tRNA: a 98-nucleotide sequence from Collybiopsis luxurians.
The organism belongs to Collybiopsis luxurians, within Eukaryota.
The match comes from Rfam's covariance-model search (51 bits).

RNA sequence: GCCCGCUUAGCUCAGAGGUUAGAGCAUUGUGCUUAUAUGGGUACCUUUCAAGUCCAAGCUUUACGCAAGGGUCGGCAGUUCGAUCCUGCCAGUGGGCA
Numbered sequence: 001g002c003c004c005g006c007u008u009a010g011c012u013c014a015g016a017g018g019u020u021a022g023a024g025c026a027u028u029g030u031g032c033u034u035a036u037a038u039g040g041g042u043a044c045c046u047u048u049c050a051a052g053u054c055c056a057a058g059c060u061u062u063a064c065g066c067a068a069g070g071g072u073c074g075g076c077a078g079u080u081c082g083a084u085c086c087u088g089c090c091a092g093u094g095g096g097c098a
Stems, first nucleotide, its partner, number of pairs: 001097007010025004027068005074090005